The record is a 106-nucleotide RNA sequence from Bacillus sp. V3-13, which matches "TPP riboswitch aptamer (THI element)" in Rfam. The family's consensus secondary structure is taken from published work. Rfam describes the family as follows. Vitamin B(1) in its active form thiamin pyrophosphate (TPP) is an essential coenzyme that is synthesised by coupling of pyrimidine and thiazole moieties in bacteria.
RNA sequence: UAGUUCCACAAGGGGGGCUGCGUGCUGCAGCUGAGAGUGAGCUUCGAGUUCUGACCCUAUGAACCUGUUAGUUAAUGCUAGCGUAGGGAUGUGGUUUGAUGGAUAG
Numbered sequence: 001u002a003g004u005u006c007c008a009c010a011a012g013g014g015g016g017g018c019u020g021c022g023u024g025c026u027g028c029a030g031c032u033g034a035g036a037g038u039g040a041g042c043u044u045c046g047a048g049u050u051c052u053g054a055c056c057c058u059a060u061g062a063a064c065c066u067g068u069u070a071g072u073u074a075a076u077g078c079u080a081g082c083g084u085a086g087g088g089a090u091g092u093g094g095u096u097u098g099a100u101g102g103a104u105a106g
Base pairs, nucleotide, nucleotide: 006094007093008092009091010090011058012057013056014055016052017031018030019029020028021027039051040050041049042048064087065086066085067084068081069080070079071078